This 166-nucleotide RNA sequence from Papaver somniferum belongs to the Rfam family "Small nucleolar RNA snoR138". Rfam 15.1 lists 308 matches to the family in 168 species. It is annotated as an H/ACA-box small nucleolar RNA. Pairs were carried over by alignment from the consensus structure, which was predicted with mfold. A search with the family's covariance model found it, with a score of 51 bits.

RNA sequence: UUUGCCUUCGAAUAACUGGAUGUUGAAAAUUAAGACCACAUUCGGUUCAGACAAGUGCAUAGAAUAAAUAUAUGAGGGGAUUGUGCUGGAAUUUAUUUCUUCACCUUCCUUUUGAAUCAAUCUUAGUGGGAAGGAAUGAUUUUCCUUAUGAUUGUUUCUAACAUUU
Numbered sequence: 001u002u003u004g005c006c007u008u009c010g011a012a013u014a015a016c017u018g019g020a021u022g023u024u025g026a027a028a029a030u031u032a033a034g035a036c037c038a039c040a041u042u043c044g045g046u047u048c049a050g051a052c053a054a055g056u057g058c059a060u061a062g063a064a065u066a067a068a069u070a071u072a073u074g075a076g077g078g079g080a081u082u083g084u085g086c087u088g089g090a091a092u093u094u095a096u097u098u099c100u101u102c103a104c105c106u107u108c109c110u111u112u113u114g115a116a117u118c119a120a121u122c123u124u125a126g127u128g129g130g131a132a133g134g135a136a137u138g139a140u141u142u143u144c145c146u147u148a149u150g151a152u153u154g155u156u157u158c159u160a161a162c163a164u165u166u
Base pairs, nucleotide, nucleotide: 003059004058005057007055008054014047015046016045017044018043019042020041021040024038025037074158075157076156077155078111079110083106085104088100089099090098118154119153120152121151122150
For this family Rfam cites "Mining small RNA sequencing data: a new approach to identify small nucleolar RNAs in Arabidopsis" (Chen and Wu, Nucleic Acids Res, 2009).